[Rfam]
RNA sequence: AUCCUUGGCGGCUAGGGUGCCACCCUGUGUUCACAGUAACCAUAGCAACCAUGUGAACACAGCUGGUGGUAUCUUAUCUACUUAGGAAAA
Numbered sequence: 001a002u003c004c005u006u007g008g009c010g011g012c013u014a015g016g017g018u019g020c021c022a023c024c025c026u027g028u029g030u031u032c033a034c035a036g037u038a039a040c041c042a043u044a045g046c047a048a049c050c051a052u053g054u055g056a057a058c059a060c061a062g063c064u065g066g067u068g069g070u071a072u073c074u075u076a077u078c079u080a081c082u083u084a085g086g087a088a089a090a
Base pairs, nucleotide, nucleotide: 008081010079011078015075016073017072019070020069022067023066024065025062026061027060029058031056032055
Shown here is a 90-nucleotide RNA from Elysia chlorotica, a member of the family "mir-317 microRNA precursor family". It scores 58 bits against the family's covariance model. Pairs were carried over by alignment from the consensus structure, which was predicted with RNAalifold.